[Rfam]
RNA sequence: GGCUCCGGUGGCGCUGGCCCCUUCAAGAACCCAUAACCGUGGGGAAAUAACCAACCAACCCAAACCAAACCCGCGGGCUCGCACGCCUGUGUCACACGGUGGGGUGAUCCAGCGGCUCUGGGCUGGCUUUUCCACAGCGAUGCGGUGCAGGCUCAGCGGCAGCACCACAAACUUUCCGCAAAAGCAAUGGCCCCCGGCGGGACUGCCAUCCCGGUCGAGGGCCUGACCACCCAGGAAGUCGAGCCUUCCCG
Numbered sequence: 001g002g003c004u005c006c007g008g009u010g011g012c013g014c015u016g017g018c019c020c021c022u023u024c025a026a027g028a029a030c031c032c033a034u035a036a037c038c039g040u041g042g043g044g045a046a047a048u049a050a051c052c053a054a055c056c057a058a059c060c061c062a063a064a065c066c067a068a069a070c071c072c073g074c075g076g077g078c079u080c081g082c083a084c085g086c087c088u089g090u091g092u093c094a095c096a097c098g099g100u101g102g103g104g105u106g107a108u109c110c111a112g113c114g115g116c117u118c119u120g121g122g123c124u125g126g127c128u129u130u131u132c133c134a135c136a137g138c139g140a141u142g143c144g145g146u147g148c149a150g151g152c153u154c155a156g157c158g159g160c161a162g163c164a165c166c167a168c169a170a171a172c173u174u175u176c177c178g179c180a181a182a183a184g185c186a187a188u189g190g191c192c193c194c195c196g197g198c199g200g201g202a203c204u205g206c207c208a209u210c211c212c213g214g215u216c217g218a219g220g221g222c223c224u225g226a227c228c229a230c231c232c233a234g235g236a237a238g239u240c241g242a243g244c245c246u247u248c249c250c251g
Stems, first nucleotide, its partner, number of pairs: 007231004016079004092107004097102001122157005189223005195217002199212004234249005